About this RNA: Rfam assigns this 81-nucleotide sequence from Halomonas urumqiensis to the family "c-di-GMP-I-GGC riboswitch aptamer".
Nucleotides: 081
Base pairs, nucleotide, nucleotide: 001081003078011036012035016031017030018029019028020027021026034067039074040073041072044070045069046068047065048064049063
Number, partner (000 for none) and nucleotide at each position: 001081c002000u003078c004000c005000g006000a007000a008000a009000c010000g011036g012035c013000a014000a015000a016031a017030c018029c019028g020027u021026c022000g023000c024000a025000a026021g027020g028019c029018g030017g031016u032000g033000a034067c035012g036011c037000a038000a039074a040073g041072c042000c043000u044070u045069g046068g047065g048064u049063c050000u051000c052000g053000g054000u055000a056000a057000c058000g059000u060000c061000g062000a063049g064048a065047u066000c067034g068046c069045c070044a071000a072041g073040c074039u075000g076000c077000c078003g079000a080000a081001g

The match comes from Rfam's covariance-model search (67 bits). Taxonomically the source falls in Halomonas (Bacteria, Pseudomonadati, Pseudomonadota, Gammaproteobacteria).